[Rfam]
RNA sequence: CGUUGGCUUAGUUGGGAGGCACAAAUUAAUAGAUCAUAAUCGAUCUUCUCGGGCUUUUUGAGAGGACAUUGUGAUUUCUUAUUACUUGUCCUUCAAGCAGGCUUGAAACAUUU
Numbered sequence: 001c002g003u004u005g006g007c008u009u010a011g012u013u014g015g016g017a018g019g020c021a022c023a024a025a026u027u028a029a030u031a032g033a034u035c036a037u038a039a040u041c042g043a044u045c046u047u048c049u050c051g052g053g054c055u056u057u058u059u060g061a062g063a064g065g066a067c068a069u070u071g072u073g074a075u076u077u078c079u080u081a082u083u084a085c086u087u088g089u090c091c092u093u094c095a096a097g098c099a100g101g102c103u104u105g106a107a108a109c110a111u112u113u
Base pairs, nucleotide, nucleotide: 004021005020007018008017009016032045033044034043035042049106050105051104052103053102054101057097058096059095060094062093063092064091065090066089067088068087
RNA: Small nucleolar RNA U19